Rfam assigns this 155-nucleotide sequence from Amborella trichopoda to the family "MIR8565 microRNA precursor family".
The family's consensus secondary structure was predicted with RNAalifold.
Rfam's curators put it in the seed alignment.
NCBI's taxonomy places the organism under Eukaryota, Streptophyta, Streptophytina, Embryophyta, Amborella.
[Rfam]
RNA sequence: UCCACACCCAUGUGUGUAGGAUUCCAAAUGAUCACCAUUAAAUUUGGUACAAAUUUUCAUAAAAGUUAUCACAUGGGUGUGGGACUUGACUUUUUUUAGAGAUUUGUGUCAAAUUUAAUGGAUAUCUUUUGGGAUCUUACACACAUGGGUGUGGG
Numbered sequence: 001u002c003c004a005c006a007c008c009c010a011u012g013u014g015u016g017u018a019g020g021a022u023u024c025c026a027a028a029u030g031a032u033c034a035c036c037a038u039u040a041a042a043u044u045u046g047g048u049a050c051a052a053a054u055u056u057u058c059a060u061a062a063a064a065g066u067u068a069u070c071a072c073a074u075g076g077g078u079g080u081g082g083g084a085c086u087u088g089a090c091u092u093u094u095u096u097u098a099g100a101g102a103u104u105u106g107u108g109u110c111a112a113a114u115u116u117a118a119u120g121g122a123u124a125u126c127u128u129u130u131g132g133g134a135u136c137u138u139a140c141a142c143a144c145a146u147g148g149g150u151g152u153g154g155g
Stems, first nucleotide, its partner, number of pairs: 002154012015141014030126003035121023059096001061094008069082005